[Rfam]
RNA: mir-17 microRNA precursor family
RNA sequence: UCUGUAGCGCUAAAGUGCUUAUAGUGCAGGUAGUGUCUAGUUAUCUACUGCAUUACGAGCACUUGCAGUGCUGCUGG
Numbered sequence: 001u002c003u004g005u006a007g008c009g010c011u012a013a014a015g016u017g018c019u020u021a022u023a024g025u026g027c028a029g030g031u032a033g034u035g036u037c038u039a040g041u042u043a044u045c046u047a048c049u050g051c052a053u054u055a056c057g058a059g060c061a062c063u064u065g066c067a068g069u070g071c072u073g074c075u076g077g
Base pairs, nucleotide, nucleotide: 004074005073006072007071009069010068011067013064014063015062016061017060018059019058020057022055023054024053025052026051027050029049030048031047032046033045